[Rfam]
RNA sequence: UAAGGGGGAGGAUAGACAAAUCUCUUAGUGUCGCUUUGUUUUGAAAGAACUGAGGUAGAAAAAAUCUAAUAGCCAAGAUAUUGUUUCAGUCGUCAUUCUUUGAUUGAUGAUUUGAUUGUUGCUUGUCCACAU
Number, nucleotide and partner (000 for none) at each position: 001u000002a000003a000004g000005g000006g042007g041008g040009a039010g000011g037012a000013u000014a000015g032016a031017c030018a029019a000020a000021u000022c000023u000024c000025u000026u000027a000028g000029u018030g017031u016032c015033g000034c000035u000036u000037u011038g000039u009040u008041u007042u006043g000044a000045a000046a000047g000048a000049a000050c000051u000052g000053a000054g000055g000056u000057a000058g000059a000060a000061a000062a000063a000064a000065u000066c000067u000068a000069a000070u000071a000072g127073c000074c125075a124076a123077g122078a000079u000080a116081u115082u114083g113084u000085u000086u000087c000088a000089g111090u110091c109092g108093u107094c106095a105096u000097u103098c102099u000100u000101u000102g098103a097104u000105u095106g094107a093108u092109g091110a090111u089112u000113u083114g082115a081116u080117u000118g000119u000120u000121g000122c077123u076124u075125g074126u000127c072128c000129a000130c000131a000132u000
The family of this 132-nucleotide sequence from Populus tomentosa is "Small nucleolar RNA snoR111". By type it is an H/ACA-box small nucleolar RNA. Gene Ontology terms of the family: RNA processing and nucleolus. Lineage of the source: Eukaryota > Spermatophyta > Salicaceae > Saliceae > Populus. It scores 78 bits against the family's covariance model. Pairs were carried over by alignment from the consensus structure, which was predicted with WAR. Rfam 15.1 lists 533 matches to the family in 223 species.